[Rfam]
RNA: Group II catalytic intron D1-D4-3
Organism: Pedobacter rhizosphaerae
RNA sequence: UCGUGGGUGACUGCGAAUCUGAAGGAAGUCCGCGGCAAAUAUGGGGGCUUACGAACAGAAACUGUAUAUAAGGCGUAUUUAGUCCGGGUGAUGUUGCCAUACAAACAGAAGCCCAAUACUGCACGGGGACUAUUACGUAAAUACAGGGGCCACAUCCAUAGGAAGUAGAUUGU
Dot-bracket structure: ((((((....))))))...........((.....((...(((((((((((...........((((((.....(((.(..((((((((((..((((........))))...))))............)))))).).)))..)))))))))))...))))))....)).....))